[Rfam]
RNA sequence: CCUAAUCCCUAGGGGAGCUUGUUACUAGCUGAGAUGGAAGAGAGAACUUCCAGACCCUUUGUACCUGAUCUGGUUAAUACCAGCGUAGGGAAGUGGAUAGCCGUAUCG
Numbered sequence: 001c002c003u004a005a006u007c008c009c010u011a012g013g014g015g016a017g018c019u020u021g022u023u024a025c026u027a028g029c030u031g032a033g034a035u036g037g038a039a040g041a042g043a044g045a046a047c048u049u050c051c052a053g054a055c056c057c058u059u060u061g062u063a064c065c066u067g068a069u070c071u072g073g074u075u076a077a078u079a080c081c082a083g084c085g086u087a088g089g090g091a092a093g094u095g096g097a098u099a100g101c102c103g104u105a106u107c108g
Stems, first nucleotide, its partner, number of pairs: 006096002009093002011058004017029003021025001036051005064089004070083004
This 108-nucleotide sequence from Ammoniphilus sp. CFH 90114 belongs to the Rfam family "TPP riboswitch aptamer (THI element)". Its family is annotated with thiamine pyrophosphate binding in the Gene Ontology. Pairs were carried over by alignment from the consensus structure, which is taken from published work. Rfam describes the family as follows. Vitamin B(1) in its active form thiamin pyrophosphate (TPP) is an essential coenzyme that is synthesised by coupling of pyrimidine and thiazole moieties in bacteria.